[Rfam]
RNA sequence: UGGAAGCUCCAUCUACAAAUGGAUAAAUUUGCGUUCUUAGUUUAGUGUAUAAGAGUUAUUGAAAGUAAAGGGGCAGUACCUAUUUCUUGACAGACCAAGAAAUAGAUUAUUGCUCCUUU
Numbered sequence: 001u002g003g004a005a006g007c008u009c010c011a012u013c014u015a016c017a018a019a020u021g022g023a024u025a026a027a028u029u030u031g032c033g034u035u036c037u038u039a040g041u042u043u044a045g046u047g048u049a050u051a052a053g054a055g056u057u058a059u060u061g062a063a064a065g066u067a068a069a070g071g072g073g074c075a076g077u078a079c080c081u082a083u084u085u086c087u088u089g090a091c092a093g094a095c096c097a098a099g100a101a102a103u104a105g106a107u108u109a110u111u112g113c114u115c116c117u118u119u
Base pairs, nucleotide, nucleotide: 008023009022010021011020012019067119068118069117070116071115072114073113074112075111076110077109078108080105081104082103084101085100086099087098088097
A member of the RNA family "Plastid-psbA-1 3UTR RNA" from Anredera cordifolia, 119 nucleotides long. By type it is a cis-regulatory element. The source organism's lineage runs through Eukaryota, Tracheophyta, Euphyllophyta, Caryophyllales and Anredera. The sequence is in the family's curated seed alignment. Plastid psbA-1 is a non-coding RNA (ncRNA) present in plastids. It was identified in inverted repeat sequences in the 3 prime untranslate region (3UTR) of photosystem II quinone-binding protein (psbA).